[Rfam]
RNA sequence: ACAUAUAAUGCUGGAAAUUUUGCACACAUUUACAGUAAUUGUAAAUGUGUUGAAAAUCGUUUGCACAG
Dot-bracket structure: ........(((...(((((((..((((((((((((...))))))))))))..)))))...)))))...
Rfam assigns this 68-nucleotide RNA from Drosophila busckii to the family "mir-287 microRNA precursor family". The literature on the family includes a 2003 paper in Genome Biol by Lai et al., "Computational identification of Drosophila microRNA genes". Gene Ontology terms of the family: RISC complex and miRNA-mediated post-transcriptional gene silencing. It scores 80 bits against the family's covariance model.